[Rfam]
RNA sequence: UGCAGUGAUGGUGUAAUUUGCGUCUGACCCUGAGCCCAGCGACAGUUUGCCUGCUGUCACCAUGCUGGCUCAGAGGGCUGACGAAUACCGAGUCUGAGCA
Numbered sequence: 001u002g003c004a005g006u007g008a009u010g011g012u013g014u015a016a017u018u019u020g021c022g023u024c025u026g027a028c029c030c031u032g033a034g035c036c037c038a039g040c041g042a043c044a045g046u047u048u049g050c051c052u053g054c055u056g057u058c059a060c061c062a063u064g065c066u067g068g069c070u071c072a073g074a075g076g077g078c079u080g081a082c083g084a085a086u087a088c089c090g091a092g093u094c095u096g097a098g099c100a
Stems, first nucleotide, its partner, number of pairs: 001100003021083004030073005039065002041058005
RNA: Small nucleolar RNA SNORD16